[Rfam]
RNA sequence: UUCCGCGCGUCAGGAGAGAGCCGCCCAAGCCAACAGGUUUCAGGGCAGCCGCCGAAGGCGCAGAACCGCUGAUUGCAGUCGUUUGAACGCUCAGGCAAAAGGACUGACAAACGUCA
Numbered sequence: 001u002u003c004c005g006c007g008c009g010u011c012a013g014g015a016g017a018g019a020g021c022c023g024c025c026c027a028a029g030c031c032a033a034c035a036g037g038u039u040u041c042a043g044g045g046c047a048g049c050c051g052c053c054g055a056a057g058g059c060g061c062a063g064a065a066c067c068g069c070u071g072a073u074u075g076c077a078g079u080c081g082u083u084u085g086a087a088c089g090c091u092c093a094g095g096c097a098a099a100a101g102g103a104c105u106g107a108c109a110a111a112c113g114u115c116a
Stems, first nucleotide, its partner, number of pairs: 009108005020049002023046004051096003054092002058090003064084002